[Rfam]
RNA: Flavo-1 RNA
Organism: Formosa sp. Hel1_31_208
RNA sequence: AAAUAGCGUUAAGGAUAGCAGCGACAUCCUUUUUACAACAGUUAGAGUUAUCAAACUCUAACACGUAAAAAGAUAUAGCGAAUAGCCUGUAAAAAC
Dot-bracket structure: ...........(((.((...((...(((...(((((....(((((((((....)))))))))..)))))..)))...))...)).)))........
Numbered sequence: 001a002a003a004u005a006g007c008g009u010u011a012a013g014g015a016u017a018g019c020a021g022c023g024a025c026a027u028c029c030u031u032u033u034u035a036c037a038a039c040a041g042u043u044a045g046a047g048u049u050a051u052c053a054a055a056c057u058c059u060a061a062c063a064c065g066u067a068a069a070a071a072g073a074u075a076u077a078g079c080g081a082a083u084a085g086c087c088u089g090u091a092a093a094a095a096c
Stems, first nucleotide, its partner, number of pairs: 012088003016084002021079002026074003032069005041062009